[Rfam]
RNA sequence: GUCACGCGUGGAGAUGGCAUUCCUCCUUUAACCGCCGAUUCGCUCGGCUGAUGAUGCCUACGUGCCC
Numbered sequence: 001g002u003c004a005c006g007c008g009u010g011g012a013g014a015u016g017g018c019a020u021u022c023c024u025c026c027u028u029u030a031a032c033c034g035c036c037g038a039u040u041c042g043c044u045c046g047g048c049u050g051a052u053g054a055u056g057c058c059u060a061c062g063u064g065c066c067c
Stems, first nucleotide, its partner, number of pairs: 010026004016058006034048004
Annotation:
Shown here is a 67-nucleotide RNA sequence from Burkholderia ambifaria, a member of the family "Fluoride riboswitch aptamer (crcB RNA motif)". For this family Rfam cites "Widespread genetic switches and toxicity resistance proteins for fluoride" (Baker et al., Science, 2012). The organism belongs to Burkholderia ambifaria, within Bacteria.